[Rfam]
RNA sequence: UAGGGGGAAGCCGAAAACCUUCAGAACAGAGUAGGCA
Numbered sequence: 001u002a003g004g005g006g007g008a009a010g011c012c013g014a015a016a017a018c019c020u021u022c023a024g025a026a027c028a029g030a031g032u033a034g035g036c037a
Stems, first nucleotide, its partner, number of pairs: 002021004010036003
RNA: DUF805b RNA